[Rfam]
RNA sequence: UAAAAUCAAAUGAAUUUCCUACGUAUAAUAUCGGGGAUAUGGCCCGAAAGUUUCUACCAGACUGCCGUAAAUGGUCUGACUACGGAGGAUUAUUGAAAUAUU
Number, nucleotide and partner (000 for none) at each position: 001u000002a000003a000004a000005a000006u000007c000008a000009a000010a000011u000012g000013a000014a000015u000016u000017u000018c088019c087020u086021a000022c084023g083024u082025a081026u000027a000028a000029u049030a000031u047032c046033g045034g044035g043036g000037a000038u000039a000040u000041g000042g000043c035044c034045c033046g032047a031048a000049a029050g000051u000052u000053u000054c000055u000056a000057c000058c078059a077060g076061a075062c074063u073064g072065c000066c000067g000068u000069a000070a000071a000072u064073g063074g062075u061076c060077u059078g058079a000080c000081u025082a024083c023084g022085g000086a020087g019088g018089a000090u000091u000092a000093u000094u000095g000096a000097a000098a000099u000100a000101u000102u000
Rfam assigns this 102-nucleotide RNA sequence from Fictibacillus arsenicus to the family "Purine riboswitch aptamer". Its family is annotated with purine nucleobase biosynthetic process in the Gene Ontology. Lineage of the source: Bacteria > Bacillati > Bacillota > Caryophanales > Fictibacillus.